[Rfam]
RNA sequence: CGUUGCUCGGGAGUGAGGGAGGAAUUGGCUCAAUGAACUCCGUCAACCUGCCGCCUAUAGCAAAGUGCCAAUUCCAGCUAAAGAAGAUCUUUAGUAAAAUAAGGG
Numbered sequence: 001c002g003u004u005g006c007u008c009g010g011g012a013g014u015g016a017g018g019g020a021g022g023a024a025u026u027g028g029c030u031c032a033a034u035g036a037a038c039u040c041c042g043u044c045a046a047c048c049u050g051c052c053g054c055c056u057a058u059a060g061c062a063a064a065g066u067g068c069c070a071a072u073u074c075c076a077g078c079u080a081a082a083g084a085a086g087a088u089c090u091u092u093a094g095u096a097a098a099a100u101a102a103g104g105g
Base pairs, nucleotide, nucleotide: 001105003103004102007099013041015040016039017038021031022030025077026076027075028074042069044067045066047065049062050061051060073097078094079093080092081091082090083089
A member of the RNA family "SAM riboswitch aptamer (S box leader)" from Geobacillus kaustophilus, 105 nucleotides long. About the family: The SAM riboswitch is found upstream of a number of genes which code for proteins involved in methionine or cysteine biosynthesis in Gram-positive bacteria. It scores 45 bits against the family's covariance model.